[Rfam]
RNA sequence: GUUUCCUGCGAGGUCCCACCUCCUCCCGGGACCUGUAGCAGCAGCGGCGACGCCUCUCCUCCUCCCUGGUGUCGCCGUCCUUU
Numbered sequence: 001g002u003u004u005c006c007u008g009c010g011a012g013g014u015c016c017c018a019c020c021u022c023c024u025c026c027c028g029g030g031a032c033c034u035g036u037a038g039c040a041g042c043a044g045c046g047g048c049g050a051c052g053c054c055u056c057u058c059c060u061c062c063u064c065c066c067u068g069g070u071g072u073c074g075c076c077g078u079c080c081u082u083u
Base pairs, nucleotide, nucleotide: 007037008036009035011034012033013032014031015030016029017028045077046076047075048074049073050072051071052070053069054068
RNA: Conserved CCUCCUCCC motif stress-induced RNA 1
Organism: Cereibacter sphaeroides